The family of this 371-nucleotide RNA sequence from Indolivaga macrotermitis is "Bacterial RNase P class A". It is annotated as a ribozyme. It scores 251 bits against the family's covariance model. Its family is annotated with dimeric ribonuclease P complex, tRNA processing and ribonuclease P activity in the Gene Ontology. Lineage of the source: Bacteria > Pseudomonadati > Bacteroidia > Bacteroidales > Indolivaga.
RNA sequence: ACAGUCGGACGGUUUGUCGCUGAGCGUUUCCUUCGGGAAAUGAAAAGAGGAAAGUCCGGGCAACACAGAGCAUCAUAUUUCCUAACGGGAAGCUGUUCGCGAGGGCAGAGUAAGGUAACAGAAAAUAACCGCCACGGCUUGCCGGGGUAAGGGUGAAAAGGUGAGGUAAGAGCUCACCGGUCUCCGUAGCAAUACGGAGAGCCGUACUACUUAUGAGUUGCAAGACCAUGUAUACCGACGCAUGUAGGGCUGCUCGCCCGAUGUCGGGGGGUAGGUCGCUAGAGCCUGCCGGCGACGGCAGGUGUAGAUAAAUGACAAGCACUUUGUUUCGAUACAAAGCACAGAACCCGGCUUACAGACCGACUGUAAUU
Numbered sequence: 001a002c003a004g005u006c007g008g009a010c011g012g013u014u015u016g017u018c019g020c021u022g023a024g025c026g027u028u029u030c031c032u033u034c035g036g037g038a039a040a041u042g043a044a045a046a047g048a049g050g051a052a053a054g055u056c057c058g059g060g061c062a063a064c065a066c067a068g069a070g071c072a073u074c075a076u077a078u079u080u081c082c083u084a085a086c087g088g089g090a091a092g093c094u095g096u097u098c099g100c101g102a103g104g105g106c107a108g109a110g111u112a113a114g115g116u117a118a119c120a121g122a123a124a125a126u127a128a129c130c131g132c133c134a135c136g137g138c139u140u141g142c143c144g145g146g147g148u149a150a151g152g153g154u155g156a157a158a159a160g161g162u163g164a165g166g167u168a169a170g171a172g173c174u175c176a177c178c179g180g181u182c183u184c185c186g187u188a189g190c191a192a193u194a195c196g197g198a199g200a201g202c203c204g205u206a207c208u209a210c211u212u213a214u215g216a217g218u219u220g221c222a223a224g225a226c227c228a229u230g231u232a233u234a235c236c237g238a239c240g241c242a243u244g245u246a247g248g249g250c251u252g253c254u255c256g257c258c259c260g261a262u263g264u265c266g267g268g269g270g271g272u273a274g275g276u277c278g279c280u281a282g283a284g285c286c287u288g289c290c291g292g293c294g295a296c297g298g299c300a301g302g303u304g305u306a307g308a309u310a311a312a313u314g315a316c317a318a319g320c321a322c323u324u325u326g327u328u329u330c331g332a333u334a335c336a337a338a339g340c341a342c343a344g345a346a347c348c349c350g351g352c353u354u355a356c357a358g359a360c361c362g363a364c365u366g367u368a369a370u371u
Base pairs, nucleotide, nucleotide: 001367002366003365004364005363006362007361008360010358011356012320013319014318015317016316017315018314020047021046025042026041027040028039029038030037052354053353054352056351057350058349059348060347061220062219063218064217068255069254070253071252073216074215075214076213077212078092079091080090081089082088093108095106096105097104098103109211110210115207116206117205129152130151131148132147133146135144136143137142160178161177162176163175164174165173180202181200182199183198184197185196186195187194188193224277225276226275227274235267236266237265238264239263247259248258249257250256284303285302286301287300288299289298290297291296